RNA sequence: GAACCGCCACAACGGCUUCCUGGCGUGGCGGGGAUUAACCAGCGGAGCA
Numbered sequence: 001g002a003a004c005c006g007c008c009a010c011a012a013c014g015g016c017u018u019c020c021u022g023g024c025g026u027g028g029c030g031g032g033g034a035u036u037a038a039c040c041a042g043c044g045g046a047g048c049a
Stems, first nucleotide, its partner, number of pairs: 004031007013022002015048003019045002
Source information
A member of the RNA family "SAM/SAH riboswitch aptamer" from Phaeovulum veldkampii, 49 nucleotides long. NCBI's taxonomy places the organism under Bacteria, Pseudomonadati, Alphaproteobacteria, Rhodobacterales, Phaeovulum veldkampii. For this family Rfam cites "The structure of the SAM/SAH-binding riboswitch" (Weickhmann et al., Nucleic Acids Res, 2019).